[Rfam]
RNA sequence: UUUGAGCCGAGGGGCCUUACGGAAACAUCAAGCAGCGCUAGCUGGAAACCGUAGUAAGCGAGCCCGCAACACGUGAAGGACUGACUGAAGCGUGAUGAAAUACUGAGCCCACUUCGCAAGGGGCAGUCAGGCAGUAGUAAU
Numbered sequence: 001u002u003u004g005a006g007c008c009g010a011g012g013g014g015c016c017u018u019a020c021g022g023a024a025a026c027a028u029c030a031a032g033c034a035g036c037g038c039u040a041g042c043u044g045g046a047a048a049c050c051g052u053a054g055u056a057a058g059c060g061a062g063c064c065c066g067c068a069a070c071a072c073g074u075g076a077a078g079g080a081c082u083g084a085c086u087g088a089a090g091c092g093u094g095a096u097g098a099a100a101u102a103c104u105g106a107g108c109c110c111a112c113u114u115c116g117c118a119a120g121g122g123g124c125a126g127u128c129a130g131g132c133a134g135u136a137g138u139a140a141u
Stems, first nucleotide, its partner, number of pairs: 012065004018056003031043003034039001067097002070094005081130004101136004107124004
The record is a 141-nucleotide RNA sequence, which matches "poplar-1 RNA" in Rfam. Pairs were carried over by alignment from the consensus structure, which is taken from published work.